[Rfam]
RNA sequence: CGGACGGCAGCACUCCCAGGCGUCGCCGCCCCGCGAGGGGAGCUAAACCUGCCU
Numbered sequence: 001c002g003g004a005c006g007g008c009a010g011c012a013c014u015c016c017c018a019g020g021c022g023u024c025g026c027c028g029c030c031c032c033g034c035g036a037g038g039g040g041a042g043c044u045a046a047a048c049c050u051g052c053c054u
Stems, first nucleotide, its partner, number of pairs: 002016003029040004
Dot-bracket structure: .(((.........)))............((((....))))..............

About this RNA
The family of this 54-nucleotide RNA from Desulfovibrio psychrotolerans is "COG3860 RNA". The organism belongs to Desulfovibrio, within Bacteria.